[Rfam]
RNA: c-di-GMP-I riboswitch aptamer
Organism: Lachnotalea glycerini
RNA sequence: UAGUUACUUUAGCAAACCUAUUGAAAAGUAGGGACGCAAAGCCAGAAGCCUGUUGAAAAAUUUUUCUAUGGUAGUUCAGUUGCAACU
Numbered sequence: 001u002a003g004u005u006a007c008u009u010u011a012g013c014a015a016a017c018c019u020a021u022u023g024a025a026a027a028g029u030a031g032g033g034a035c036g037c038a039a040a041g042c043c044a045g046a047a048g049c050c051u052g053u054u055g056a057a058a059a060a061u062u063u064u065u066c067u068a069u070g071g072u073a074g075u076u077c078a079g080u081u082g083c084a085a086c087u
Base pairs, nucleotide, nucleotide: 012037013036017032018031019030020029021028022027040081041080042079045077046076047075048072049071050070055066056065057064058063
Dot-bracket structure: ...........((...((((((....))))))...))..(((..((((((....((((....))))...)))..))).)))......